[Rfam]
RNA sequence: CGGCGGGACACCCCUCCCCAACGAGGGGAUAUGUUCAUCAGAGAAUUCCCUU
Numbered sequence: 001c002g003g004c005g006g007g008a009c010a011c012c013c014c015u016c017c018c019c020a021a022c023g024a025g026g027g028g029a030u031a032u033g034u035u036c037a038u039c040a041g042a043g044a045a046u047u048c049c050c051u052u
Base pairs, nucleotide, nucleotide: 011028012027013026014025015024016023033046034045035044036043
Background
serC leader: a 52-nucleotide sequence. Its family is annotated with regulation of gene expression in the Gene Ontology. The sequence is in the family's curated seed alignment. The literature on the family includes a 2005 paper in Genome Biol by Corbino et al., "Evidence for a second class of S-adenosylmethionine riboswitches and other regulatory RNA motifs in alpha-proteobacteria". From the family's description: This family is a putative regulatory RNA structure that is found upstream of the serC-serA operon in some alpha-proteobacteria. The family's RNA type in Rfam is cis-regulatory leader.